[Rfam]
RNA sequence: GUGGUGUAAUGAAGGCUUGGUCUGCAAACAGCUUGCUGUGAGGCCAGGCUGGAUGUCCUUGCCAC
Numbered sequence: 001g002u003g004g005u006g007u008a009a010u011g012a013a014g015g016c017u018u019g020g021u022c023u024g025c026a027a028a029c030a031g032c033u034u035g036c037u038g039u040g041a042g043g044c045c046a047g048g049c050u051g052g053a054u055g056u057c058c059u060u061g062c063c064a065c
Stems, first nucleotide, its partner, number of pairs: 001065001003062001014050010029038003